[Rfam]
Rfam assigns this 282-nucleotide RNA from Methanobrevibacter cuticularis to the family "Archaeal RNase P".

RNA sequence: GUAAGCCAAAGACAGCUACUGGUUUUUAACUAAGGAAACUCCAUCCAUCACACAGAAACUAUAGUGUUGAAAGACACAUGCUGAGAAGUAUGACUCUGGAGCAGAAACGACACGUCUUUUAAUGGAUGACCAUGAUACAGUUACGUUGAUUGACAUUAGAAGGAUCGGUGAAACGGCCAAUCUAUAGGAUGCAAGGACAAAGCUGCUUAUGACAUCUGGUGAGGCAAGGUAGUUCGCAAAGAUGAAUGCUGUAAAACAGAAGGUGGGUUACUCUUGGCAAAC
Numbered sequence: 001g002u003a004a005g006c007c008a009a010a011g012a013c014a015g016c017u018a019c020u021g022g023u024u025u026u027u028a029a030c031u032a033a034g035g036a037a038a039c040u041c042c043a044u045c046c047a048u049c050a051c052a053c054a055g056a057a058a059c060u061a062u063a064g065u066g067u068u069g070a071a072a073g074a075c076a077c078a079u080g081c082u083g084a085g086a087a088g089u090a091u092g093a094c095u096c097u098g099g100a101g102c103a104g105a106a107a108c109g110a111c112a113c114g115u116c117u118u119u120u121a122a123u124g125g126a127u128g129a130c131c132a133u134g135a136u137a138c139a140g141u142u143a144c145g146u147u148g149a150u151u152g153a154c155a156u157u158a159g160a161a162g163g164a165u166c167g168g169u170g171a172a173a174c175g176g177c178c179a180a181u182c183u184a185u186a187g188g189a190u191g192c193a194a195g196g197a198c199a200a201a202g203c204u205g206c207u208u209a210u211g212a213c214a215u216c217u218g219g220u221g222a223g224g225c226a227a228g229g230u231a232g233u234u235c236g237c238a239a240a241g242a243u244g245a246a247u248g249c250u251g252u253a254a255a256a257c258a259g260a261a262g263g264u265g266g267g268u269u270a271c272u273c274u275u276g277g278c279a280a281a282c
Stems, first nucleotide, its partner, number of pairs: 001282002005278005010272002012252005020032005037269003041266005046191004051218001055217001059187005064077005078091005092182002097179003113167002116162008137146002195235004204226005

It scores 193 bits against the family's covariance model.
NCBI's taxonomy places the organism under Archaea, Methanobacteriota, Methanobacteria, Methanobacteriaceae, Methanobrevibacter.
Its Rfam clan is "RNaseP clan".